[Rfam]
Nucleotides: 106
Stems, first nucleotide, its partner, number of pairs: 006103001008101002011098001013096008022087007030079003
Number, partner (000 for none) and nucleotide at each position: 001000u002000a003000a004000a005000a006103u007000a008101a009100c010000u011098u012000c013096a014095u015094u016093g017092a018091g019090u020089g021000c022087a023086g024085c025084g026083u027082u028081g029000a030079u031078g032077a033000a034000a035000a036000u037000u038000u039000u040000a041000g042000c043000u044000c045000u046000u047000g048000g049000g050000g051000u052000u053000c054000u055000u056000u057000c058000c059000c060000a061000g062000u063000g064000a065000c066000u067000u068000g069000g070000g071000g072000u073000g074000a075000u076000u077032u078031c079030a080000c081028c082027a083026g084025c085024g086023c087022u088000u089020c090019a091018u092017u093016c094015a095014a096013u097000u098011a099000u100009g101008u102000c103006a104000u105000u106000u